[Rfam]
RNA sequence: GACCCCAGCAAUGGGCAGAGACACCUUGUUGGUGGUGUUCUUAUACUAGGCAGGGGCAAAGAGGACGGCAGCCCUUUGUUUCAUCCUAGCUUGAUGGGUGGUUUGGUGACUAAAGCUGUUUAUGUCUAGGACAUAUAA
Numbered sequence: 001g002a003c004c005c006c007a008g009c010a011a012u013g014g015g016c017a018g019a020g021a022c023a024c025c026u027u028g029u030u031g032g033u034g035g036u037g038u039u040c041u042u043a044u045a046c047u048a049g050g051c052a053g054g055g056g057c058a059a060a061g062a063g064g065a066c067g068g069c070a071g072c073c074c075u076u077u078g079u080u081u082c083a084u085c086c087u088a089g090c091u092u093g094a095u096g097g098g099u100g101g102u103u104u105g106g107u108g109a110c111u112a113a114a115g116c117u118g119u120u121u122a123u124g125u126c127u128a129g130g131a132c133a134u135a136u137a138a
Stems, first nucleotide, its partner, number of pairs: 003056004008051001012048003018042003021038005077133004082129001093126003099122003103118001105116001107114001

Rfam assigns this 138-nucleotide RNA sequence from Mus spicilegus to the family "Small nucleolar RNA SNORA48". The family's RNA type in Rfam is H/ACA-box small nucleolar RNA. The literature on the family includes a 1997 paper in J Mol Biol by Ofengand and Bakin, "Mapping to nucleotide resolution of pseudouridine residues in large subunit ribosomal RNAs from representative eukaryotes, prokaryotes, archaebacteria, mitochondria and chloroplasts". It scores 52 bits against the family's covariance model. Rfam describes the family as follows. The snoRNA ACA 48 has been identified to guide pseudouridylation of the residue U3797 in the 28S rRNA subunit. Lineage of the source: Eukaryota > Deuterostomia > Muroidea > Murinae > Mus. Gene Ontology terms of the family: RNA processing and nucleolus.